[Rfam]
RNA sequence: ACUGCUUUUCUUUGAAAUCCCCAAAUUGAGGAGCCCGCUUAUUAUCCGCCUGGAUAAUUUAGCGGGUUUUUUUAU
Numbered sequence: 001a002c003u004g005c006u007u008u009u010c011u012u013u014g015a016a017a018u019c020c021c022c023a024a025a026u027u028g029a030g031g032a033g034c035c036c037g038c039u040u041a042u043u044a045u046c047c048g049c050c051u052g053g054a055u056a057a058u059u060u061a062g063c064g065g066g067u068u069u070u071u072u073u074a075u
Stems, first nucleotide, its partner, number of pairs: 032068008041059001043057001

Rfam assigns this 75-nucleotide RNA from Enterobacterales bacterium CwR94 to the family "RybB RNA". The source organism's lineage runs through Bacteria, Pseudomonadati, Pseudomonadota, Gammaproteobacteria and Enterobacterales. The family's RNA type in Rfam is small RNA.